[Rfam]
RNA sequence: UUGAAGGUGUGCUCCCAGAUCACCUGCUCGUCGACCAGGACCGGGUCGCCGAAGUAGUCGCCGUCGGCCAGCGUGCCACGCACCGUGGCGUCGCCGUACUCGCCGAGGCCGACCUUGUGGAUCUUGCCGUGCGCGAUCAGGUAGACCUUCUCGGCCUGGUGGCCGAACUCCACGAUGACGUCGCCGACACCGUAUUCACGCUGGAUACACCGGUCGGCGAGGGCGCUGAGCACCUCUUCGGUGUCGAAGCCGCGCAGCGCGGGCAGCUCCUGCAGCUCCUGCGGGAUGACGCGGAUGGCCGCGCCGGUGUUGGUGAAGGUGAGCCGGUUGUCGCCGAUCGCGUAGCUGAGCCGGCGGUUCACCCGGUACGCGCCACCCUUGGCCUCCACCCACGGCAGCAGCUUCAGCAGCCACCGGGAGGUGAUGCCCUGCAUCUGGGGUUCGGACUUGGUGGUCGUCGCGAGAUUGCGGGCCGCCUGCGUACUCAGUGAGAGUUGCGGCUGCUCGC
Number, nucleotide and partner (000 for none) at each position: 001u000002u000003g000004a000005a000006g390007g389008u388009g387010u000011g385012c000013u000014c382015c381016c000017a000018g325019a000020u322021c321022a320023c319024c318025u000026g000027c000028u316029c315030g000031u000032c000033g000034a000035c313036c312037a311038g310039g000040a308041c307042c306043g000044g000045g305046u000047c303048g302049c301050c000051g299052a000053a000054g233055u232056a000057g000058u229059c228060g227061c000062c225063g224064u223065c111066g110067g109068c108069c000070a000071g000072c000073g000074u000075g103076c000077c102078a000079c000080g099081c000082a097083c096084c000085g094086u093087g000088g000089c000090g000091u000092c000093g086094c085095c000096g083097u082098a000099c080100u000101c000102g077103c075104c000105g000106a000107g000108g068109c067110c066111g065112a000113c000114c000115u000116u000117g000118u221119g000120g000121a000122u217123c216124u000125u000126g000127c212128c000129g210130u209131g206132c000133g000134c203135g202136a000137u000138c000139a000140g197141g000142u000143a196144g195145a000146c000147c000148u000149u000150c000151u000152c192153g191154g000155c000156c000157u189158g188159g000160u186161g185162g184163c183164c000165g000166a000167a000168c174169u000170c000171c000172a000173c000174g168175a000176u000177g000178a000179c000180g000181u000182c000183g163184c162185c161186g160187a000188c158189a157190c000191c153192g152193u000194a000195u144196u143197c140198a000199c000200g000201c000202u135203g134204g000205a000206u131207a000208c000209a130210c129211c000212g127213g000214u000215c000216g123217g122218c000219g000220a000221g118222g000223g064224c063225g062226c000227u060228g059229a058230g000231c000232a055233c054234c000235u295236c294237u293238u000239c000240g290241g000242u288243g287244u286245c285246g000247a000248a000249g000250c000251c281252g280253c000254g278255c000256a277257g276258c275259g000260c000261g270262g269263g000264c000265a000266g000267c000268u000269c262270c261271u000272g000273c000274a000275g258276c257277u256278c254279c000280u252281g251282c000283g000284g000285g245286a244287u243288g242289a000290c240291g000292c000293g237294g236295a235296u000297g000298g000299c051300c000301g049302c048303g047304c000305c045306g042307g041308u040309g000310u038311u037312g036313g035314u000315g029316a028317a000318g024319g023320u022321g021322a020323g000324c000325c018326g000327g000328u000329u342330g341331u340332c000333g000334c000335c000336g000337a000338u000339c000340g331341c330342g329343u000344a000345g000346c000347u000348g000349a000350g000351c000352c000353g377354g376355c000356g374357g373358u000359u000360c372361a000362c370363c000364c000365g000366g000367u000368a000369c000370g362371c000372g360373c357374c356375a000376c354377c353378c000379u000380u000381g015382g014383c000384c000385u011386c000387c009388a008389c007390c006391c431392a430393c000394g428395g427396c426397a425398g000399c423400a422401g000402c000403u418404u417405c416406a000407g415408c000409a000410g000411c000412c000413a000414c000415c407416g405417g404418g403419a000420g000421g000422u400423g399424a000425u397426g396427c395428c394429c000430u392431g391432c000433a000434u000435c000436u000437g476438g000439g474440g473441u000442u471443c470444g469445g000446a467447c000448u464449u463450g000451g461452u460453g000454g000455u000456c000457g000458u000459c000460g452461c451462g000463a449464g448465a000466u000467u446468g000469c444470g443471g442472g000473c440474c439475g000476c437477c000478u507479g000480c503481g502482u000483a000484c499485u000486c497487a496488g495489u000490g000491a000492g000493a000494g000495u488496u487497g486498c000499g484500g000501c000502u481503g480504c000505u000506c000507g478508c000

Saccharopolyspora sRNA 350: a 508-nucleotide RNA from Pseudonocardiaceae bacterium YIM PH 21723. It is annotated as an antisense RNA. On this family, see Liu et al., PLoS One 2013: "Prediction and characterization of small non-coding RNAs related to secondary metabolites in Saccharopolyspora erythraea". The source organism's lineage runs through Bacteria, Bacillati, Actinomycetes, Pseudonocardiales and Pseudonocardiaceae. Rfam links the family to the GO term regulation of secondary metabolite biosynthetic process. The base pairs follow the family's consensus structure, which was predicted with RNAfold.